The record is a 100-nucleotide RNA sequence from Fonticella tunisiensis, which matches "Purine riboswitch aptamer" in Rfam.

Nucleotides: 100
Stems, first nucleotide, its partner, number of pairs: 018086008029049006058076006
Number, partner (000 for none) and nucleotide at each position: 001000c002000a003000a004000a005000u006000a007000a008000a009000a010000c011000a012000c013000a014000u015000g016000c017000u018086u019085a020084c021083u022082c023081a024080u025079a026000u027000a028000a029049u030048c031047c032046c033045g034044a035000u036000a037000a038000u039000a040000u041000g042000g043000u044034u045033c046032g047031g048030g049029a050000g051000u052000c053000u054000c055000u056000a057000c058076c059075g060074g061073a062072a063071g064000c065000c066000g067000u068000a069000a070000a071063c072062u073061u074060c075059c076058g077000c078000c079025u080024a081023u082022g083021a084020g085019u086018g087000g088000g089000g090000u091000u092000c093000g094000a095000u096000u097000u098000g099000c100000a